Annotation:
Shown here is a 78-nucleotide sequence from Desulfatitalea alkaliphila, a member of the family "c-di-GMP-I riboswitch aptamer". The organism belongs to Desulfatitalea, within Bacteria. A search with the family's covariance model found it, with a score of 58 bits. The family's consensus secondary structure is taken from published work.
RNA sequence: UACCAGAACAGCCAAACUCCGGGUGACCGGAGGACGGAAAGUUACGGAUCCAUGGAAAUGGAUGGCCGAACUACCUGG
Numbered sequence: 001u002a003c004c005a006g007a008a009c010a011g012c013c014a015a016a017c018u019c020c021g022g023g024u025g026a027c028c029g030g031a032g033g034a035c036g037g038a039a040a041g042u043u044a045c046g047g048a049u050c051c052a053u054g055g056a057a058a059u060g061g062a063u064g065g066c067c068g069a070a071c072u073a074c075c076u077g078g
Stems, first nucleotide, its partner, number of pairs: 012037002017032006040072004045068003048063006